[Rfam]
RNA: skipping-rope RNA
RNA sequence: AACCGCAGAGGACGGAACAGGCAGCCGUCGCCCGUGUUGGAGAUGCGGGAAUAAGCCGGCCCGCCUGCGGCC
Numbered sequence: 001a002a003c004c005g006c007a008g009a010g011g012a013c014g015g016a017a018c019a020g021g022c023a024g025c026c027g028u029c030g031c032c033c034g035u036g037u038u039g040g041a042g043a044u045g046c047g048g049g050a051a052u053a054a055g056c057c058g059g060c061c062c063g064c065c066u067g068c069g070g071c072c
Stems, first nucleotide, its partner, number of pairs: 003070006011029005020057003031040001045064005